[Rfam]
RNA sequence: ACCAUCCUUGUCUUGGGUUGUGAGGCGGCUCAGUGAGCGUGUAGUGAGAGCGGCCCUGCUGACACCACAGACAGCACACUCGCACCACUAGUGCACAUGCAUUGGAAAGGUACAAUUUUUGGAACC
Numbered sequence: 001a002c003c004a005u006c007c008u009u010g011u012c013u014u015g016g017g018u019u020g021u022g023a024g025g026c027g028g029c030u031c032a033g034u035g036a037g038c039g040u041g042u043a044g045u046g047a048g049a050g051c052g053g054c055c056c057u058g059c060u061g062a063c064a065c066c067a068c069a070g071a072c073a074g075c076a077c078a079c080u081c082g083c084a085c086c087a088c089u090a091g092u093g094c095a096c097a098u099g100c101a102u103u104g105g106a107a108a109g110g111u112a113c114a115a116u117u118u119u120u121g122g123a124a125c126c
Stems, first nucleotide, its partner, number of pairs: 007017003020059003025054002028051004037045002082113001084111003089104006
RNA: U4atac minor spliceosomal RNA
Organism: Leptobrachium leishanense